[Rfam]
RNA sequence: UGCUCCUUCUGACGUGACACAACAUCCAGCAGCGGUGUUGUGCGACCUGCAGUGUCCGUCAGUCGGAGCG
Numbered sequence: 001u002g003c004u005c006c007u008u009c010u011g012a013c014g015u016g017a018c019a020c021a022a023c024a025u026c027c028a029g030c031a032g033c034g035g036u037g038u039u040g041u042g043c044g045a046c047c048u049g050c051a052g053u054g055u056c057c058g059u060c061a062g063u064c065g066g067a068g069c070g
Stems, first nucleotide, its partner, number of pairs: 001070006009062005021039006044056003
RNA: bZIP non canonical Hac1/Xbp1 intron
Organism: Rosellinia necatrix